[Rfam]
Shown here is a 127-nucleotide RNA sequence from Intrasporangium chromatireducens, a member of the family "Actinobacteria sRNA Ms_IGR-7". The literature on the family includes a 2013 paper in RNA by Li et al., "Identification of small RNAs in Mycobacterium smegmatis using heterologous Hfq".
RNA sequence: ACGAGAUGCCCCUUGUGUGCGACGUGAUUGAAGCGUGAAGAACUCCAAUUCUGUUGCAACACAGGGGCAUUCUCAUGUUCCGACGCGCUGAAUCACCUCACAGCACCCUGCCCAUCGGUGGAUCGAG
Dot-bracket structure: ..((.((((((((.(((.(((((..(((.(.((.........)).).)))..)))))..)))))))))))))...................................(.(.(((....))).).)..